[Rfam]
RNA sequence: UUGCCCAUCGGGGCCUCGGAUACCGGCUCUGAUUUUU
Numbered sequence: 001u002u003g004c005c006c007a008u009c010g011g012g013g014c015c016u017c018g019g020a021u022a023c024c025g026g027c028u029c030u031g032a033u034u035u036u037u
Stems, first nucleotide, its partner, number of pairs: 003014004017026001019024001

Record summary
The record is a 37-nucleotide sequence from Echinops telfairi, which matches "XIST RNA A repeat" in Rfam. It is annotated as a small RNA.